[Rfam]
The family of this 200-nucleotide sequence from Dicentrarchus labrax is "Small nucleolar RNA SNORA74". The organism belongs to Dicentrarchus, within Eukaryota. The match comes from Rfam's covariance-model search (76 bits). Rfam describes the family as follows. U19 belongs to the H/ACA class of snoRNAs. snoRNAs bind a number of proteins (including dyskerin, Gar1p and Nop10p in the case of the H/ACA class) to form snoRNP complexes. This class are thought to guide the sites of modification of uridines to pseudouridines by forming direct base pairing interactions with substrate RNAs. Targets may include ribosomal and spliceosomal RNAs but the exact functions of many snoRNAs, including U19, are not confirmed. Co-precipitation of U19 snoRNA with RNase MRP RNA suggests that U19 may be involved in pre-rRNA processing. On this family, see Ganot et al., Genes Dev 1997: "The family of box ACA small nucleolar RNAs is defined by an evolutionarily conserved secondary structure and ubiquitous sequence elements essential for RNA accumulation".
RNA sequence: CCCAGCUCUAAGUCAGCUGACCGGCGAUGUGUGUCUGGCUCAGUGUUACAGUGCUGGUAGAGGAAGACUCUGUACCUGGUCUCAGCUGUGUGGGCUCUGUUUUAGAGUCUGCUGCUUCUGAGCUGCUGCAGAGCGCGGCCCAACGAGAGUGGCCUGUCCUGGUCCAACAGCAGGACAGGCCUAGUGCAGGGCCGGACAUU
Numbered sequence: 001c002c003c004a005g006c007u008c009u010a011a012g013u014c015a016g017c018u019g020a021c022c023g024g025c026g027a028u029g030u031g032u033g034u035c036u037g038g039c040u041c042a043g044u045g046u047u048a049c050a051g052u053g054c055u056g057g058u059a060g061a062g063g064a065a066g067a068c069u070c071u072g073u074a075c076c077u078g079g080u081c082u083c084a085g086c087u088g089u090g091u092g093g094g095c096u097c098u099g100u101u102u103u104a105g106a107g108u109c110u111g112c113u114g115c116u117u118c119u120g121a122g123c124u125g126c127u128g129c130a131g132a133g134c135g136c137g138g139c140c141c142a143a144c145g146a147g148a149g150u151g152g153c154c155u156g157u158c159c160u161g162g163u164c165c166a167a168c169a170g171c172a173g174g175a176c177a178g179g180c181c182u183a184g185u186g187c188a189g190g191g192c193c194g195g196a197c198a199u200u
Stems, first nucleotide, its partner, number of pairs: 002057005008051002012049002016044005022037003068133007079124001081122003084117002087114002092109002095107004136194006151181003155177007